[Rfam]
RNA sequence: UUAACAGAUUGCCUCUGUCAUCACCUGCUCUUUGCAGAUAUGGGAAUGCAAUUGAUGA
Numbered sequence: 001u002u003a004a005c006a007g008a009u010u011g012c013c014u015c016u017g018u019c020a021u022c023a024c025c026u027g028c029u030c031u032u033u034g035c036a037g038a039u040a041u042g043g044g045a046a047u048g049c050a051a052u053u054g055a056u057g058a
Stems, first nucleotide, its partner, number of pairs: 007053006018043004025037003
RNA: Transposase-1 RNA